Rfam assigns this 398-nucleotide RNA from Pseudomonas sp. HLS-6 to the family "Pseudomonas sRNA CrcZ". Rfam 15.1 lists 127 matches to the family in 96 species. Rfam classes the family as a small RNA.

RNA sequence: ACAAGAACAAUAACAAGCACUGCAAAAGACAAUAAAAAUAAGACGAAUCGGCUCACGCACAAUAAGAACAAGACGGCGGAGGCGCAGCUAACUGAUUCUUUUGGAGAGGAGUUGUGUUUUGGGGCUUGCCCCACAACCAGGCAGAGAACAACAAAAACUGCACUAAAGCAGCGCCUACACUGGUUGGAUCGACAGAUCACCGCAACCUCAGCGACCAAAGCAAUCCGUUUGCUCUUGGCCCCCGAAUAGGGGGACGCUCUACAAGCCUCGGCUUUGUAGACAGGGCACUCAACAAAAACAAGAAGCCCAGAAGAAAAAUAAAAAGAGCACGCAACUACAUUCCAGGGGAGCUUCGGCUCCCCUUGUAGUUUUCCUACCUGUCCCCCCUCAUGCUGUUG
Numbered sequence: 001a002c003a004a005g006a007a008c009a010a011u012a013a014c015a016a017g018c019a020c021u022g023c024a025a026a027a028g029a030c031a032a033u034a035a036a037a038a039u040a041a042g043a044c045g046a047a048u049c050g051g052c053u054c055a056c057g058c059a060c061a062a063u064a065a066g067a068a069c070a071a072g073a074c075g076g077c078g079g080a081g082g083c084g085c086a087g088c089u090a091a092c093u094g095a096u097u098c099u100u101u102u103g104g105a106g107a108g109g110a111g112u113u114g115u116g117u118u119u120u121g122g123g124g125c126u127u128g129c130c131c132c133a134c135a136a137c138c139a140g141g142c143a144g145a146g147a148a149c150a151a152c153a154a155a156a157a158c159u160g161c162a163c164u165a166a167a168g169c170a171g172c173g174c175c176u177a178c179a180c181u182g183g184u185u186g187g188a189u190c191g192a193c194a195g196a197u198c199a200c201c202g203c204a205a206c207c208u209c210a211g212c213g214a215c216c217a218a219a220g221c222a223a224u225c226c227g228u229u230u231g232c233u234c235u236u237g238g239c240c241c242c243c244g245a246a247u248a249g250g251g252g253g254a255c256g257c258u259c260u261a262c263a264a265g266c267c268u269c270g271g272c273u274u275u276g277u278a279g280a281c282a283g284g285g286c287a288c289u290c291a292a293c294a295a296a297a298a299c300a301a302g303a304a305g306c307c308c309a310g311a312a313g314a315a316a317a318a319u320a321a322a323a324a325g326a327g328c329a330c331g332c333a334a335c336u337a338c339a340u341u342c343c344a345g346g347g348g349a350g351c352u353u354c355g356g357c358u359c360c361c362c363u364u365g366u367a368g369u370u371u372u373c374c375u376a377c378c379u380g381u382c383c384c385c386c387c388u389c390a391u392g393c394u395g396u397u398g
Base pairs, nucleotide, nucleotide: 049084050083052081053080054079099220100219101218102217103216113213114212115211134186135185136184137183138182139181140180158171159170160169161168239253240252241251242250277380278379279378282375283308284307285306286305327371329369330368344363345362346361347360348359349358350357351356
Dot-bracket structure: ................................................((.(((........................))).))..............(((((.........(((..................(((((((.................((((......))))........)))))))........................)))..)))))..................((((.......)))).......................(((..(((((..................))))..................(.((.............((((((((....))))))))....)).)...)..)))..................